[Rfam]
RNA: Small nucleolar RNA SNORD90
RNA sequence: UGCAUUCCCUGUCCUGUGUCUUGUGAUGAAGCUGCAUAGGGCAGAUUCUGAGCUGAGAAAUGAAAUUUCUCUCCCCUGAUACUCUCUAUAUGCCAUCUGAAGACACAGCAUUUACA
Numbered sequence: 001u002g003c004a005u006u007c008c009c010u011g012u013c014c015u016g017u018g019u020c021u022u023g024u025g026a027u028g029a030a031g032c033u034g035c036a037u038a039g040g041g042c043a044g045a046u047u048c049u050g051a052g053c054u055g056a057g058a059a060a061u062g063a064a065a066u067u068u069c070u071c072u073c074c075c076c077u078g079a080u081a082c083u084c085u086c087u088a089u090a091u092g093c094c095a096u097c098u099g100a101a102g103a104c105a106c107a108g109c110a111u112u113u114a115c116a
Stems, first nucleotide, its partner, number of pairs: 014108008031096001034093004039085003044080001047079002050076001052074001055071005